[Rfam]
Shown here is a 143-nucleotide RNA from Trichechus manatus, a member of the family "Small nucleolar RNA SNORA29". The literature on the family includes a 2001 paper in EMBO J by Huttenhofer et al., "RNomics: an experimental approach that identifies 201 candidates for novel, small, non-messenger RNAs in mouse". Rfam's curators write: ACA29 is a member of the H/ACA class of snoRNA that guide the sites of modification of uridines to pseudouridines. By type it is an H/ACA-box small nucleolar RNA. The family has 26 seed sequences and 960 matches in Rfam 15.1. Clan: SNORA20 clan.
RNA sequence: UUUCCCAUUUGACUACCACUUGAGAUCUUAAUAAUAGAUUUUAGUGGUUAUGCUUGUGGGAUAGAUUAAAAUUGCCAUGAUCUGAAGAGGGAGGGUUUUUUUUUUGUGUCCUCCUUCUAUAUGAAAUGGCUGUACAGAAAAUC
Numbered sequence: 001u002u003u004c005c006c007a008u009u010u011g012a013c014u015a016c017c018a019c020u021u022g023a024g025a026u027c028u029u030a031a032u033a034a035u036a037g038a039u040u041u042u043a044g045u046g047g048u049u050a051u052g053c054u055u056g057u058g059g060g061a062u063a064g065a066u067u068a069a070a071a072u073u074g075c076c077a078u079g080a081u082c083u084g085a086a087g088a089g090g091g092a093g094g095g096u097u098u099u100u101u102u103u104u105u106g107u108g109u110c111c112u113c114c115u116u117c118u119a120u121a122u123g124a125a126a127u128g129g130c131u132g133u134a135c136a137g138a139a140a141a142u143c
Stems, first nucleotide, its partner, number of pairs: 004060004016047004074130004092118004